[Rfam]
This 117-nucleotide RNA from Aerobium aerolatum belongs to the Rfam family "Alphaproteobacterial ar14". Rfam's curators write: Smr14C2 was renamed NfeR1 (Nodule Formation Efficiency RNA) highly expressed in salt stress and during the symbiotic interaction on legume roots. Lineage of the source: Bacteria > Pseudomonadati > Phyllobacteriaceae > Aerobium > Aerobium aerolatum. The pairing is the family consensus, mapped onto this sequence.

RNA sequence: AGCAGUCACUGACGUUCUACCUCCUCCCAGAACGUCGGUAUCGAAUGCGGCGAACCUCCUCCCUUGCCGCAUUGCAGAUUAGACCCGCUGCACCUCCUCCCGCAGCGGGUCUUAUCA
Number, nucleotide and partner (000 for none) at each position: 001a000002g000003c000004a000005g000006u000007c000008a039009c038010u000011g036012a035013c034014g033015u032016u031017c030018u000019a000020c000021c000022u000023c000024c000025u000026c000027c000028c000029a000030g017031a016032a015033c014034g013035u012036c011037g000038g009039u008040a000041u000042c000043g000044a000045a072046u071047g070048c069049g068050g067051c066052g065053a000054a000055c000056c000057u000058c000059c000060u000061c000062c000063c000064u000065u052066g051067c050068c049069g048070c047071a046072u045073u000074g000075c000076a000077g000078a000079u000080u000081a112082g111083a110084c109085c108086c107087g106088c105089u104090g103091c102092a000093c000094c000095u000096c000097c000098u000099c000100c000101c000102g091103c090104a089105g088106c087107g086108g085109g084110u083111c082112u081113u000114a000115u000116c000117a000